Record summary
Rfam assigns this 96-nucleotide RNA sequence from Aegilops tauschii to the family "MIR2275 microRNA precursor family". The organism belongs to Aegilops, within Eukaryota. Its family is annotated with miRNA-mediated post-transcriptional gene silencing and RISC complex in the Gene Ontology. The base pairs follow the family's consensus structure, which was predicted with RNAalifold.
RNA sequence: ACUGAAAGUGAGAGUUGGAGGAAAACAAACAGAUCAUGGCUAGCUAAUCGUGGUCACCGAUCAGCUUGUUUUCCUCCAAUAUCUCACCUUCGGUUG
Numbered sequence: 001a002c003u004g005a006a007a008g009u010g011a012g013a014g015u016u017g018g019a020g021g022a023a024a025a026c027a028a029a030c031a032g033a034u035c036a037u038g039g040c041u042a043g044c045u046a047a048u049c050g051u052g053g054u055c056a057c058c059g060a061u062c063a064g065c066u067u068g069u070u071u072u073c074c075u076c077c078a079a080u081a082u083c084u085c086a087c088c089u090u091c092g093g094u095u096g
Base pairs, nucleotide, nucleotide: 002093003092004091005090006089009086010085011084012083014080015079016078017077018076019075021073022072023071024070025069026068027067028066030064